[Rfam]
RNA: BsrF
Organism: Salimicrobium jeotgali
RNA sequence: GCGAUGAGCUGAUUUGCAUAAGACAAGAUUGACACGCCUUUUGGCAAAGCACUAUGUGGAGUGCUGUCUCUUGCCGCAAAUAUACGAAAAGACGUCCUUUUAAAGGCGUCUU
Numbered sequence: 001g002c003g004a005u006g007a008g009c010u011g012a013u014u015u016g017c018a019u020a021a022g023a024c025a026a027g028a029u030u031g032a033c034a035c036g037c038c039u040u041u042u043g044g045c046a047a048a049g050c051a052c053u054a055u056g057u058g059g060a061g062u063g064c065u066g067u068c069u070c071u072u073g074c075c076g077c078a079a080a081u082a083u084a085c086g087a088a089a090a091g092a093c094g095u096c097c098u099u100u101u102a103a104a105g106g107c108g109u110c111u112u
Stems, first nucleotide, its partner, number of pairs: 014079004024073005031068003036045002048065002051062003089112008